[Rfam]
Nucleotides: 147
Stems, first nucleotide, its partner, number of pairs: 010146004016141001018031003034047005049138006
Number, partner (000 for none) and nucleotide at each position: 001000a002000c003000a004000g005000u006000a007000c008000a009000a010146a011145c012144u013143g014000a015000a016141c017000a018031g019030g020029c021000c022000g023000a024000u025000a026000g027000g028000a029020g030019c031018c032000g033000g034047g035046u036045c037044a038043c039000a040000u041000u042000a043038g044037u045036g046035a047034c048000a049138g050137u051136g052135g053134a054133u055000u056000a057000u058000u059000a060000u061000g062000u063000u064000u065000u066000u067000u068000a069000u070000g071000u072000a073000u074000u075000u076000a077000u078000a079000u080000a081000c082000a083000a084000u085000a086000u087000g088000a089000g090000a091000u092000u093000u094000a095000u096000c097000a098000u099000a100000u101000a102000u103000c104000g105000u106000c107000a108000a109000a110000u111000g112000a113000u114000u115000g116000g117000u118000g119000a120000u121000a122000g123000a124000a125000a126000u127000u128000a129000u130000c131000a132000u133054a134053u135052c136051c137050a138049c139000g140000g141016g142000a143013c144012a145011g146010u147000a